[Rfam]
RNA sequence: GGGCGAGUGGCGCAACGGGAGCGCACCUGCUUUGCAAGCAGGGGGUUGUCGGUUCGAAUCCGAUCUCGUCCA
Numbered sequence: 001g002g003g004c005g006a007g008u009g010g011c012g013c014a015a016c017g018g019g020a021g022c023g024c025a026c027c028u029g030c031u032u033u034g035c036a037a038g039c040a041g042g043g044g045g046u047u048g049u050c051g052g053u054u055c056g057a058a059u060c061c062g063a064u065c066u067c068g069u070c071c072a
Stems, first nucleotide, its partner, number of pairs: 001071007010024004026042005048064005
Rfam assigns this 72-nucleotide sequence from an Actinomycetota bacterium to the family "tRNA".
The organism belongs to Actinomycetota, within Bacteria.
By type it is a transfer RNA.